ZMP/ZTP riboswitch aptamer (pfl RNA motif): an 83-nucleotide RNA from Clostridium sp. CAG:413. NCBI's taxonomy places the organism under Bacteria, Bacillati, Eubacteriales, Clostridiaceae, Clostridium.
[Rfam]
Nucleotides: 083
Stems, first nucleotide, its partner, number of pairs: 006050007015041002017071005026037004061077004
Number, partner (000 for none) and nucleotide at each position: 001000g002000c003000a004000u005000a006050u007049u008048c009047c010046u011045g012044u013000u014000a015041c016040u017071g018070a019069c020068g021067g022000a023000u024000a025000a026037g027036c028035a029034g030000g031000u032000c033000a034029c035028u036027g037026c038000u039000a040016g041015g042000g043000a044012g045011c046010a047009g048008g049007a050006a051000g052000c053000g054000u055000u056000a057000u058000u059000a060000a061077u062076g063075c064074c065000g066000a067021c068020c069019g070018u071017c072000u073000g074064g075063g076062c077061g078000c079000a080000g081000u082000u083000a